[Rfam]
RNA sequence: UUGGCAUGAUGAGGAAUACGAUUGUUGUCUCAUCUAGUAUUUGAUUAUAAAAAUCCUCCUACUCAUUCUGA
Dot-bracket structure: .....((((...............(...(.............).....).............)))).....
Small nucleolar RNA Z105: a 71-nucleotide RNA sequence from Triticum aestivum. It scores 56 bits against the family's covariance model. Gene Ontology terms of the family: nucleolus and RNA processing. The family has 11 seed sequences and 621 matches in Rfam 15.1. It is annotated as a C/D-box small nucleolar RNA. A reference for the family is Chen et al. (2003), "The high diversity of snoRNAs in plants: identification and comparative study of 120 snoRNA genes from Oryza sativa", Nucleic Acids Res.